[Rfam]
RNA sequence: CGAGUGGAACAUACGGCGGCGGGGCGGCUUUGACCGCUCUGAGGAAAGUCCGGGCCUCACAGAGCACGGUAACUGCUAACGGCAGCCGAGGGUGACCUUAGGGAAAGUGCAACAGAAAACAAACCGCCGCAGCAAUGCGGUAAGGAUGAAACGGCGAGGUAAGAGCUCACCAGCGCAUGGGUGACCAUGCGGCUUUGUAAACCCUACCGGAAGCAACGCCUAUAUGGGACGUACAGCGCUGCUCGCGUGUCCCGAAGGCGGCACGAGCCUGUCAGCAAUGGCAGGCCUAGACAGAUCGUCGUUUAAUACAGAACCCGGCUUACGGUCUAUCUCGUUUU
Numbered sequence: 001c002g003a004g005u006g007g008a009a010c011a012u013a014c015g016g017c018g019g020c021g022g023g024g025c026g027g028c029u030u031u032g033a034c035c036g037c038u039c040u041g042a043g044g045a046a047a048g049u050c051c052g053g054g055c056c057u058c059a060c061a062g063a064g065c066a067c068g069g070u071a072a073c074u075g076c077u078a079a080c081g082g083c084a085g086c087c088g089a090g091g092g093u094g095a096c097c098u099u100a101g102g103g104a105a106a107g108u109g110c111a112a113c114a115g116a117a118a119a120c121a122a123a124c125c126g127c128c129g130c131a132g133c134a135a136u137g138c139g140g141u142a143a144g145g146a147u148g149a150a151a152c153g154g155c156g157a158g159g160u161a162a163g164a165g166c167u168c169a170c171c172a173g174c175g176c177a178u179g180g181g182u183g184a185c186c187a188u189g190c191g192g193c194u195u196u197g198u199a200a201a202c203c204c205u206a207c208c209g210g211a212a213g214c215a216a217c218g219c220c221u222a223u224a225u226g227g228g229a230c231g232u233a234c235a236g237c238g239c240u241g242c243u244c245g246c247g248u249g250u251c252c253c254g255a256a257g258g259c260g261g262c263a264c265g266a267g268c269c270u271g272u273c274a275g276c277a278a279u280g281g282c283a284g285g286c287c288u289a290g291a292c293a294g295a296u297c298g299u300c301g302u303u304u305a306a307u308a309c310a311g312a313a314c315c316c317g318g319c320u321u322a323c324g325g326u327c328u329a330u331c332u333c334g335u336u337u338u
Base pairs, nucleotide, nucleotide: 001334002333003332004331007328009326010325013302014301015300016299017298018297020041021040022039023038024037025036026035027034046321047320048319050318051317052316053315054314055213057211058210062244063243064242065241067209068208069207070206071205073085074084075083076082087101088099089098090097091096102204103203107202108201109198110197111196124145125144126141127140128139129138130137131136153171154170156168157167158166173193174191175190176189177188178187179186180185217260218259219258220257226253227252228251229250230249231248237247238246239245267286268285269284270283271282272281273280274279
The record is a 338-nucleotide sequence from Faecalibacterium prausnitzii, which matches "Bacterial RNase P class A" in Rfam.
It is annotated as a ribozyme.
NCBI's taxonomy places the organism under Bacteria, Clostridia, Eubacteriales, Oscillospiraceae, Faecalibacterium prausnitzii.
The base pairs follow the family's consensus structure, which is taken from published work.
Rfam describes the family as follows. Ribonuclease P (RNase P) is a ubiquitous endoribonuclease, found in archaea, bacteria and eukarya as well as chloroplasts and mitochondria. Its best characterised activity is the generation of mature 5'-ends of tRNAs by cleaving the 5'-leader elements of precursor-tRNAs. Cellular RNase Ps are ribonucleoproteins.